[Rfam]
This 139-nucleotide RNA from Triticum aestivum belongs to the Rfam family "Small nucleolar RNA Z247". It is annotated as a C/D-box small nucleolar RNA. The base pairs follow the family's consensus structure, which was predicted with PFOLD.
RNA sequence: GCCAUCGAAGACGACGAGCUCAUCUCCUACAUCAUCCACGGACUCAACGUCGACUACCAGUCCCUCGUCUCUGCCCUCGAUGCAUGCGUCAUGCCAGUCUCCCUCGACGAGCUCUACACCAUGCUCAGCAACUUCGAUC
Numbered sequence: 001g002c003c004a005u006c007g008a009a010g011a012c013g014a015c016g017a018g019c020u021c022a023u024c025u026c027c028u029a030c031a032u033c034a035u036c037c038a039c040g041g042a043c044u045c046a047a048c049g050u051c052g053a054c055u056a057c058c059a060g061u062c063c064c065u066c067g068u069c070u071c072u073g074c075c076c077u078c079g080a081u082g083c084a085u086g087c088g089u090c091a092u093g094c095c096a097g098u099c100u101c102c103c104u105c106g107a108c109g110a111g112c113u114c115u116a117c118a119c120c121a122u123g124c125u126c127a128g129c130a131a132c133u134u135c136g137a138u139c
Base pairs, nucleotide, nucleotide: 004138005137006136007135008134088108089107090106093103